[Rfam]
RNA: Lysine riboswitch aptamer
RNA sequence: AUAAAGAUUAGAGGUCGCAAUUGACAUCAUUAUUUAGCGGAGCUGGUAGGCUUAGAGACUAAAGAAAGGGGAUAUUGCCGAAAUGGAAAAUAGACAUAUUUUUCAUUGGUCUAGGUGUUAAUAGCAACUAGAUUGUCGUAAUGAUACAUUACGGAGCGCUUAUCGAUGA
Number, nucleotide and partner (000 for none) at each position: 001a000002u000003a000004a000005a000006g164007a163008u162009u000010a160011g159012a000013g000014g000015u000016c000017g078018c077019a076020a075021u074022u000023g000024a000025c070026a000027u000028c000029a000030u000031u000032a000033u063034u062035u061036a060037g059038c000039g000040g000041a000042g000043c000044u000045g000046g000047u000048a000049g000050g000051c000052u000053u000054a000055g000056a000057g000058a000059c037060u036061a035062a034063a033064g000065a000066a000067a000068g000069g000070g025071g000072a000073u000074a021075u020076u019077g018078c017079c000080g000081a000082a107083a106084u105085g104086g103087a102088a101089a100090a099091u098092a097093g000094a000095c000096a000097u092098a091099u090100u089101u088102u087103u086104c085105a084106u083107u082108g134109g133110u132111c131112u130113a129114g128115g000116u126117g125118u124119u000120a000121a000122u000123a000124g118125c117126a116127a000128c114129u113130a112131g111132a110133u109134u108135g000136u154137c153138g152139u151140a150141a149142u148143g000144a000145u000146a000147c000148a142149u141150u140151a139152c138153g137154g136155a000156g000157c000158g000159c011160u010161u000162a008163u007164c006165g000166a000167u000168g000169a000